[Rfam]
RNA sequence: UCCUGUAGCACUAAAGUGCUUAUAGUGCAGGUAGUGUUUAGUUAUCUACUGCAUUAUGAGCACUUAAAGUCCUGCUGG
Numbered sequence: 001u002c003c004u005g006u007a008g009c010a011c012u013a014a015a016g017u018g019c020u021u022a023u024a025g026u027g028c029a030g031g032u033a034g035u036g037u038u039u040a041g042u043u044a045u046c047u048a049c050u051g052c053a054u055u056a057u058g059a060g061c062a063c064u065u066a067a068a069g070u071c072c073u074g075c076u077g078g
Base pairs, nucleotide, nucleotide: 005075006074007073008072010070011069012068014065015064016063017062018061019060020059021058022057023056024055025054026053027052028051030050031049032048033047034046
The record is a 78-nucleotide sequence from Ornithorhynchus anatinus, which matches "mir-17 microRNA precursor family" in Rfam. The sequence is in the family's curated seed alignment. Rfam links the family to the GO terms RISC complex and miRNA-mediated post-transcriptional gene silencing. Rfam describes the family as follows. This family represents the microRNA (miRNA) precursor mir-17, family, which includes mir-20, mir-91, and mir-103. miRNAs are transcribed as ~70nt precursors (modelled here) and subsequently processed by the Dicer enzyme to give a ~22nt product. In this case the mature sequence comes from the 3' arm of the precursor. The extents of the hairpin precursors are not generally known and are estimated based on hairpin prediction. NCBI's taxonomy places the organism under Eukaryota, Eumetazoa, Dipnotetrapodomorpha, Prototheria, Ornithorhynchus.